[Rfam]
RNA sequence: AUCACCUGGGGAUCUCAUUAAAAUGCAGAUUCUGCAUGAGUAGGUGUAAGGCUGGGAGCUGAGAUUCUGCAUUUCUAACUAGCUCCCAGGUAAUGCUGA
Numbered sequence: 001a002u003c004a005c006c007u008g009g010g011g012a013u014c015u016c017a018u019u020a021a022a023a024u025g026c027a028g029a030u031u032c033u034g035c036a037u038g039a040g041u042a043g044g045u046g047u048a049a050g051g052c053u054g055g056g057a058g059c060u061g062a063g064a065u066u067c068u069g070c071a072u073u074u075c076u077a078a079c080u081a082g083c084u085c086c087c088a089g090g091u092a093a094u095g096c097u098g099a
Base pairs, nucleotide, nucleotide: 004091005090009086010085011084014082015081018078019077020076021074022073023072025070026069027068028067029066031064032063033062